Rfam assigns this 90-nucleotide RNA from Thermoanaerobacteraceae bacterium SP2 to the family "c-di-GMP-I riboswitch aptamer". Rfam links the family to the GO term cyclic-di-GMP binding. Lineage of the source: Bacteria > Bacillota > Clostridia > Thermoanaerobacterales > Thermoanaerobacteraceae. The family's consensus secondary structure is taken from published work.
[Rfam]
RNA sequence: UACGUAGUAAGGCAAAUUUAUCAAAAGAUAAGGGAGCAAAGCAACAGGUUCUAAGGUGUUUGCAGGUAUCAUGACAGCCUGGCUGCCGCU
Numbered sequence: 001u002a003c004g005u006a007g008u009a010a011g012g013c014a015a016a017u018u019u020a021u022c023a024a025a026a027g028a029u030a031a032g033g034g035a036g037c038a039a040a041g042c043a044a045c046a047g048g049u050u051c052u053a054a055g056g057u058g059u060u061u062g063c064a065g066g067u068a069u070c071a072u073g074a075c076a077g078c079c080u081g082g083c084u085g086c087c088g089c090u
Base pairs, nucleotide, nucleotide: 012037013036017032018031019030020029021028022027040084041083042082046080047079048078050074051073056069057068058067059066